The record is a 151-nucleotide RNA sequence from Providencia heimbachae, which matches "Bacterial antisense RNA HPnc0260" in Rfam. The source organism's lineage runs through Bacteria, Pseudomonadota, Morganellaceae, Providencia and Providencia heimbachae. It scores 72 bits against the family's covariance model.

[Rfam]
Nucleotides: 151
Base pairs, nucleotide, nucleotide: 024048030042031041032040033039057067058066059065113148114147115146117144122141123140125139126138127137128136
Number, partner (000 for none) and nucleotide at each position: 001000u002000u003000a004000g005000a006000u007000c008000a009000a010000a011000u012000a013000a014000a015000u016000g017000a018000g019000u020000g021000a022000u023000u024048u025000u026000c027000a028000a029000c030042g031041c032040a033039a034000a035000u036000u037000u038000g039033u040032u041031g042030c043000g044000c045000a046000a047000c048024a049000a050000a051000a052000u053000a054000g055000c056000a057067u058066u059065g060000g061000g062000a063000a064000u065059u066058a067057a068000a069000a070000g071000c072000a073000a074000u075000g076000a077000a078000a079000g080000u081000g082000a083000g084000g085000a086000u087000a088000a089000u090000a091000a092000a093000u094000g095000g096000a097000g098000a099000g100000g101000g102000a103000g104000a105000a106000a107000a108000g109000c110000g111000a112000a113148u114147g115146g116000u117144g118000c119000g120000u121000c122141c123140g124000a125139g126138u127137a128136g129000a130000c131000u132000c133000g134000a135000a136128c137127u138126a139125c140123c141122g142000a143000c144117c145000c146115c147114c148113a149000c150000c151000a